[Rfam]
RNA sequence: AGGCCCGGAGAGAGAAGUAGGGUCAGAUCCACAGCCUCUGUGGCAGCUGCUGAUCAGUCCUUGCCUCUCUCUUUCUCCCCG
Numbered sequence: 001a002g003g004c005c006c007g008g009a010g011a012g013a014g015a016a017g018u019a020g021g022g023u024c025a026g027a028u029c030c031a032c033a034g035c036c037u038c039u040g041u042g043g044c045a046g047c048u049g050c051u052g053a054u055c056a057g058u059c060c061u062u063g064c065c066u067c068u069c070u071c072u073u074u075c076u077c078c079c080c081g
Base pairs, nucleotide, nucleotide: 008073009072010071011070012069013068014067015066017064018063019062020061022059024057026055027054028053029052032049033048034047035046